[Rfam]
RNA sequence: UACUCUGAAUAGUUGUGCGUGUUUACAUUUCCAUCAAAAGGGUUGAAAUGUAAACACGCACAACUAUUCAGAGUA
Number, nucleotide and partner (000 for none) at each position: 001u000002a000003c073004u072005c071006u070007g069008a068009a067010u066011a065012g064013u063014u062015g061016u060017g059018c058019g057020u056021g055022u054023u053024u052025a051026c050027a049028u048029u000030u046031c045032c000033a000034u000035c000036a000037a000038a000039a000040g000041g000042g000043u000044u000045g031046a030047a000048a028049u027050g026051u025052a024053a023054a022055c021056a020057c019058g018059c017060a016061c015062a014063a013064c012065u011066a010067u009068u008069c007070a006071g005072a004073g003074u000075a000